[Rfam]
RNA sequence: UAGGCAUGGUGAUGAUUGUUUAUUGUCAUCUGAUGAUUCAUUUGAUGAAUACAUAACCUCCUACUCAUUCUGA
Numbered sequence: 001u002a003g004g005c006a007u008g009g010u011g012a013u014g015a016u017u018g019u020u021u022a023u024u025g026u027c028a029u030c031u032g033a034u035g036a037u038u039c040a041u042u043u044g045a046u047g048a049a050u051a052c053a054u055a056a057c058c059u060c061c062u063a064c065u066c067a068u069u070c071u072g073a
Base pairs, nucleotide, nucleotide: 006068007067008066009065026048027047030044